[Rfam]
RNA sequence: GUGGUACCUAGUGUUCCCUCGAACACUUCAACGACCAGAACUUUCAGCUACGACAUUCUCUGUGUUCUAUGAAGUGUUUGGGGGAACCCUUGGUAUCAU
Numbered sequence: 001g002u003g004g005u006a007c008c009u010a011g012u013g014u015u016c017c018c019u020c021g022a023a024c025a026c027u028u029c030a031a032c033g034a035c036c037a038g039a040a041c042u043u044u045c046a047g048c049u050a051c052g053a054c055a056u057u058c059u060c061u062g063u064g065u066u067c068u069a070u071g072a073a074g075u076g077u078u079u080g081g082g083g084g085a086a087c088c089c090u091u092g093g094u095a096u097c098a099u
Stems, first nucleotide, its partner, number of pairs: 005095004011089001013087008022079002024076007033067002